[Rfam]
Nucleotides: 076
Base pairs, nucleotide, nucleotide: 005025006024007023008022009021010020048070049069050068051067052066053065
Number, partner (000 for none) and nucleotide at each position: 001000c002000c003000c004000a005025u006024g007023g008022g009021g010020a011000c012000u013000u014000g015000c016000g017000a018000u019000c020010u021009c022008c023007c024006c025005a026000c027000g028000a029000g030000g031000c032000g033000a034000c035000a036000u037000g038000c039000c040000u041000a042000a043000g044000c045000a046000u047000c048070g049069c050068g051067u052066c053065c054000g055000c056000u057000a058000a059000c060000c061000u062000u063000a064000c065053g066052g067051a068050c069049g070048u071000a072000u073000c074000a075000u076000g